The record is a 108-nucleotide RNA sequence from Oxalicibacterium flavum, which matches "TPP riboswitch aptamer (THI element)" in Rfam.
RNA sequence: GCAAAUAGCUAGGGGUCCUAGGCCGAACGCAGUUGGUUCGGCCGGGUGAGAAAAACCCUUGAACCUGAUCUGGAUAAUGCCAGCGAAGGGAAGCUGACGAAGUGAGCG
Numbered sequence: 001g002c003a004a005a006u007a008g009c010u011a012g013g014g015g016u017c018c019u020a021g022g023c024c025g026a027a028c029g030c031a032g033u034u035g036g037u038u039c040g041g042c043c044g045g046g047u048g049a050g051a052a053a054a055a056c057c058c059u060u061g062a063a064c065c066u067g068a069u070c071u072g073g074a075u076a077a078u079g080c081c082a083g084c085g086a087a088g089g090g091a092a093g094c095u096g097a098c099g100a101a102g103u104g105a106g107c108g
Base pairs, nucleotide, nucleotide: 006096007095008094009093010092011059012058013057014056016053017046018045019044021042064089065088066087070083071082072081073080